[Rfam]
About this RNA: Shown here is a 134-nucleotide sequence from Curtobacterium sp. MCBD17_032, a member of the family "FMN riboswitch aptamer (RFN element)". Pairs were carried over by alignment from the consensus structure, which is taken from published work. It scores 85 bits against the family's covariance model.
RNA sequence: AAGCGCUCCGGGGUCGGUGCAAGUCCGAACCGGUGGUGACAGUCCACGAGCGCCGAAGCGGGUCCGCCCGGUUCGGGGUUGACCUGGUGCGAUCCCAGGACCGACGGUGAAAGUCCGGAUGGGAGGAAGCGCUG
Number, nucleotide and partner (000 for none) at each position: 001a000002a000003g132004c131005g130006c129007u128008c125009c000010g000011g000012g000013g000014u000015c027016g026017g025018u000019g000020c000021a000022a000023g000024u000025c017026c016027g015028a000029a114030c113031c103032g102033g047034u046035g045036g044037u000038g000039a000040c000041a000042g101043u100044c036045c035046a034047c033048g000049a000050g079051c078052g000053c000054c000055g000056a000057a000058g000059c000060g000061g000062g000063u000064c000065c000066g000067c000068c000069c000070g000071g000072u000073u000074c000075g000076g000077g000078g051079u050080u000081g000082a000083c099084c098085u097086g096087g095088u000089g000090c000091g000092a000093u000094c000095c087096c086097a085098g084099g083100a043101c042102c032103g031104a000105c117106g116107g115108u000109g000110a000111a000112a000113g030114u029115c107116c106117g105118g000119a000120u000121g000122g000123g000124a000125g008126g000127a000128a007129g006130c005131g004132c003133u000134g000